The record is a 95-nucleotide RNA sequence from Citrus unshiu, which matches "MIR2275 microRNA precursor family" in Rfam.
RNA sequence: AAGUUGUAUGUAAGAAUUGGAUGGAACUAAACAGAUUAGUAAGAUCAAAAUAUUCAGUUGCUGUUUAGUUUCCUCCAAUAUCUUAUCUCCAGCUU
Numbered sequence: 001a002a003g004u005u006g007u008a009u010g011u012a013a014g015a016a017u018u019g020g021a022u023g024g025a026a027c028u029a030a031a032c033a034g035a036u037u038a039g040u041a042a043g044a045u046c047a048a049a050a051u052a053u054u055c056a057g058u059u060g061c062u063g064u065u066u067a068g069u070u071u072c073c074u075c076c077a078a079u080a081u082c083u084u085a086u087c088u089c090c091a092g093c094u095u
Stems, first nucleotide, its partner, number of pairs: 004092003008088001011085004016079006023072008032063002
Rfam links the family to the GO terms miRNA-mediated post-transcriptional gene silencing and RISC complex.